A member of the RNA family "mir-961 microRNA precursor family" from Drosophila melanogaster, 85 nucleotides long. Rfam's curators put it in the seed alignment.
[Rfam]
RNA sequence: AGGGCCGAGUUACCUUUGAUCACCAGUAACUGAGAUUGUUUCUGAUACGGUUUCGUUUUCUGGCAAUCAAAAGAACUUGGACUCG
Numbered sequence: 001a002g003g004g005c006c007g008a009g010u011u012a013c014c015u016u017u018g019a020u021c022a023c024c025a026g027u028a029a030c031u032g033a034g035a036u037u038g039u040u041u042c043u044g045a046u047a048c049g050g051u052u053u054c055g056u057u058u059u060c061u062g063g064c065a066a067u068c069a070a071a072a073g074a075a076c077u078u079g080g081a082c083u084c085g
Stems, first nucleotide, its partner, number of pairs: 002084003005080007013073001015071006023063004028058002031055009